[Rfam]
RNA sequence: CCCUUUUCUUUUGAUUGUUGCUCAGAAAGCCGUGUAGGUCGAAAUGGCUUUCGAGCUAUAAUCAAAAGUUGAGGAGGG
Numbered sequence: 001c002c003c004u005u006u007u008c009u010u011u012u013g014a015u016u017g018u019u020g021c022u023c024a025g026a027a028a029g030c031c032g033u034g035u036a037g038g039u040c041g042a043a044a045u046g047g048c049u050u051u052c053g054a055g056c057u058a059u060a061a062u063c064a065a066a067a068g069u070u071g072a073g074g075a076g077g078g
Stems, first nucleotide, its partner, number of pairs: 002074003009067007017059002020056004025052007